[Rfam]
RNA sequence: AUUUUGGGAUGCAUUUUGUGCAGUUAUGUCUUCAUGUGAUAAUUCUCUCAUCACUGGGCAAAGUGUGUCUCAUAAU
Numbered sequence: 001a002u003u004u005u006g007g008g009a010u011g012c013a014u015u016u017u018g019u020g021c022a023g024u025u026a027u028g029u030c031u032u033c034a035u036g037u038g039a040u041a042a043u044u045c046u047c048u049c050a051u052c053a054c055u056g057g058g059c060a061a062a063g064u065g066u067g068u069c070u071c072a073u074a075a076u
Base pairs, nucleotide, nucleotide: 005072006071007070008069009068010067011066012065013064014063017060018059019058021056022055023054024053
Shown here is a 76-nucleotide RNA sequence from Drosophila willistoni, a member of the family "mir-3 microRNA precursor family". The sequence is in the family's curated seed alignment. Pairs were carried over by alignment from the consensus structure, which was predicted with RNAalifold.